[Rfam]
RNA sequence: CAAGCCAGAAGAGGCGCGUCAUUCAGGUAAAGUGUCAGAGGAAUCGGUAUCCGAAGAAGACACUCUAGGGGAUAUGACGCCGAGGCGAUUUUCCUACCGAAUGGGAAUGUCGUCGACCACAAGGGCUGAAUCCCUUGGGUUGUCACCAAUGUACUCCGCAGACAUAUUGCGGAAAGUAGAACCCGCGCCGCGAUUGCGUUUCGCAGUAAAAGGUUCUGGCAAGGUGGGGCGCUUCUGGGUGU
Numbered sequence: 001c002a003a004g005c006c007a008g009a010a011g012a013g014g015c016g017c018g019u020c021a022u023u024c025a026g027g028u029a030a031a032g033u034g035u036c037a038g039a040g041g042a043a044u045c046g047g048u049a050u051c052c053g054a055a056g057a058a059g060a061c062a063c064u065c066u067a068g069g070g071g072a073u074a075u076g077a078c079g080c081c082g083a084g085g086c087g088a089u090u091u092u093c094c095u096a097c098c099g100a101a102u103g104g105g106a107a108u109g110u111c112g113u114c115g116a117c118c119a120c121a122a123g124g125g126c127u128g129a130a131u132c133c134c135u136u137g138g139g140u141u142g143u144c145a146c147c148a149a150u151g152u153a154c155u156c157c158g159c160a161g162a163c164a165u166a167u168u169g170c171g172g173a174a175a176g177u178a179g180a181a182c183c184c185g186c187g188c189c190g191c192g193a194u195u196g197c198g199u200u201u202c203g204c205a206g207u208a209a210a211a212g213g214u215u216c217u218g219g220c221a222a223g224g225u226g227g228g229g230c231g232c233u234u235c236u237g238g239g240u241g242u
Base pairs, nucleotide, nucleotide: 006237007236008235009234010233011232016080017079018078019077020076021075022074031064032063033062034061035060036059084114085113086112087111088110089109091107092106093105094104095103115141116140117139118138120137121136122135123134124133125132143227144226145225146224147223
RNA: Lysine riboswitch aptamer